[Rfam]
RNA sequence: AGCAGAGUAGAAACUGGCGCGUAAUACGAUGGUUCGUAUGAGUGCUGCCUGGUCGGGGAGUUGUCAGGCGGACGAAAAGGAGUAUCCUGCGGUGUCUGUUUCGCAUCCCGCUGCU
Numbered sequence: 001a002g003c004a005g006a007g008u009a010g011a012a013a014c015u016g017g018c019g020c021g022u023a024a025u026a027c028g029a030u031g032g033u034u035c036g037u038a039u040g041a042g043u044g045c046u047g048c049c050u051g052g053u054c055g056g057g058g059a060g061u062u063g064u065c066a067g068g069c070g071g072a073c074g075a076a077a078a079g080g081a082g083u084a085u086c087c088u089g090c091g092g093u094g095u096c097u098g099u100u101u102c103g104c105a106u107c108c109c110g111c112u113g114c115u
Base pairs, nucleotide, nucleotide: 001115002114003113004112005111010102011101012100013099014098016096017095018094019093020091021090022089042073043072045071046070047069048068049067050066051065052064056108057107058106060104077088079086080085
Notes
The record is a 115-nucleotide RNA from bacterium 1XD42-8, which matches "THF (Tetrahydrofolate) riboswitch aptamer" in Rfam. Rfam 15.1 lists 747 matches to the family in 747 species. From the family's description: Tetrahydrofolate (THF) riboswitch was first reported for Ames et al. as an RNA motif in 5' untranslated (5'-UTR)regions of folate transport and biosynthesis genes in Firmicutes genomes.